About this RNA:
The family of this 93-nucleotide sequence from Carex littledalei is "Small nucleolar RNA snoR26". The source organism's lineage runs through Eukaryota, Euphyllophyta, Liliopsida, Petrosaviidae and Carex subgen. Euthyceras. Rfam classes the family as a C/D-box small nucleolar RNA. Its family is annotated with RNA processing and nucleolus in the Gene Ontology.
[Rfam]
RNA sequence: UGAGCAACUGUGAUGAAUAAAACCUUAUGUUAUCCUUGCACUAUGAGGUUUCCACUGAAGACAAUCUAUGGGGAAUUUAUCUCUGAGUUGCUC
Numbered sequence: 001u002g003a004g005c006a007a008c009u010g011u012g013a014u015g016a017a018u019a020a021a022a023c024c025u026u027a028u029g030u031u032a033u034c035c036u037u038g039c040a041c042u043a044u045g046a047g048g049u050u051u052c053c054a055c056u057g058a059a060g061a062c063a064a065u066c067u068a069u070g071g072g073g074a075a076u077u078u079a080u081c082u083c084u085g086a087g088u089u090g091c092u093c
Stems, first nucleotide, its partner, number of pairs: 002093007
About this RNA: For this family Rfam cites "Multiple snoRNA gene clusters from Arabidopsis" (Brown et al., RNA, 2001). Pairs were carried over by alignment from the consensus structure, which was predicted with WAR.